Record summary:
c-di-GMP-I riboswitch aptamer: an 86-nucleotide sequence from Pelosinus sp. UFO1. About the family: GEMM was predicted in a large-scale screen for bacterial structured RNA regulatory elements. The family's consensus secondary structure is taken from published work.
RNA sequence: UUACAUAUUUGGCAAACUUACUGAAAGGUAGGGACGCAAAGCUAUGGGUCUAAGGACAUUUGGUCUAUGAUUGCCAGGUUUCCCUU
Numbered sequence: 001u002u003a004c005a006u007a008u009u010u011g012g013c014a015a016a017c018u019u020a021c022u023g024a025a026a027g028g029u030a031g032g033g034a035c036g037c038a039a040a041g042c043u044a045u046g047g048g049u050c051u052a053a054g055g056a057c058a059u060u061u062g063g064u065c066u067a068u069g070a071u072u073g074c075c076a077g078g079u080u081u082c083c084c085u086u
Stems, first nucleotide, its partner, number of pairs: 012037002017032006040080004045076003048071003055065003